This 176-nucleotide RNA from Candidatus Galacturonatibacter soehngenii belongs to the Rfam family "glmS glucosamine-6-phosphate activated ribozyme aptamer". Pairs were carried over by alignment from the consensus structure, which is taken from published work. From the family's description: This entry contains a glucosamine-6-phosphate activated ribozyme that is found in the mRNA for GlmS. GlmS is an enzyme that uses fructose-6-phosphate and glutamine to generate glucosamine-6-phosphate. The ribozyme catalyses self cleavage of the glmS mRNA that is thought to regulate GlmS activity. Its family is annotated with regulation of gene expression and catalytic activity in the Gene Ontology. Rfam classes the family as a riboswitch.
RNA sequence: UUAAAAACUUUAGCGCCAAGCACCUGUAAUGUGCGGAAAAAGAGGAAACUCUUAUUACAGGUUAACGAGGUAAAGAGUGAUCGAUCUUUCGGCGGAUGCUCUUUCGUAGAAUCAGCUGCGUAUAUGAGAACAAAACUACAGGUAACUGUAUCACAAAUUUCUCAUAACUGAUACCA
Numbered sequence: 001u002u003a004a005a006a007a008c009u010u011u012a013g014c015g016c017c018a019a020g021c022a023c024c025u026g027u028a029a030u031g032u033g034c035g036g037a038a039a040a041a042g043a044g045g046a047a048a049c050u051c052u053u054a055u056u057a058c059a060g061g062u063u064a065a066c067g068a069g070g071u072a073a074a075g076a077g078u079g080a081u082c083g084a085u086c087u088u089u090c091g092g093c094g095g096a097u098g099c100u101c102u103u104u105c106g107u108a109g110a111a112u113c114a115g116c117u118g119c120g121u122a123u124a125u126g127a128g129a130a131c132a133a134a135a136c137u138a139c140a141g142g143u144a145a146c147u148g149u150a151u152c153a154c155a156a157a158u159u160u161c162u163c164a165u166a167a168c169u170g171a172u173a174c175c176a
Base pairs, nucleotide, nucleotide: 022062023061024060025059026058027057028056030054072104073103074102075101076100081092082091083090084089105120106119107118108117109116123166124165125164126163127162128161129160137150138149139148140147141146